Rfam assigns this 165-nucleotide sequence from Microcaecilia unicolor to the family "Small Cajal body specific RNA 1". NCBI's taxonomy places the organism under Eukaryota, Opisthokonta, Teleostomi, Amphibia, Microcaecilia. For this family Rfam cites "Cajal body-specific small nuclear RNAs: a novel class of 2'-O-methylation and pseudouridylation guide RNAs" (Darzacq et al., EMBO J, 2002). Gene Ontology terms of the family: Cajal body, RNA processing and nucleolus. scaRNAs are a specific class of small nuclear RNAs which localise to the Cajal bodies and guide the modification of RNA polymerase II transcribed spliceosomal RNAs U1, U2, U4, U5 and U12. ACA35 belong to the H/ACA box class of guide RNAs as it has the predicted hairpin-hinge-hairpin-tail structure, conserved H/ACA-box motifs and is found associated with GAR1. It is predicted to guide pseudouridylation of the U2 spliceosomal snRNA at residue U89. It is annotated as a small Cajal body RNA. A search with the family's covariance model found it, with a score of 118 bits.
RNA sequence: AUGCACUUGAUACUAACCUAGGUAUCUGUACCUUCUGUUCUGUGCCGAACACCUGAGGUAUGUGCUGUGAUACUUGGGGCUAAGGAGUGCGACAUGAAACCAAGCCCUGAGAUUUAAGCUUAGUGUGCAGAGUCGCACCCUGAGUUAUAACUCAAAGGCACACCU
Numbered sequence: 001a002u003g004c005a006c007u008u009g010a011u012a013c014u015a016a017c018c019u020a021g022g023u024a025u026c027u028g029u030a031c032c033u034u035c036u037g038u039u040c041u042g043u044g045c046c047g048a049a050c051a052c053c054u055g056a057g058g059u060a061u062g063u064g065c066u067g068u069g070a071u072a073c074u075u076g077g078g079g080c081u082a083a084g085g086a087g088u089g090c091g092a093c094a095u096g097a098a099a100c101c102a103a104g105c106c107c108u109g110a111g112a113u114u115u116a117a118g119c120u121u122a123g124u125g126u127g128c129a130g131a132g133u134c135g136c137a138c139c140c141u142g143a144g145u146u147a148u149a150a151c152u153c154a155a156a157g158g159c160a161c162a163c164c165u
Stems, first nucleotide, its partner, number of pairs: 003090006017078002020075007027062006033055001036051005104159003123138005141154005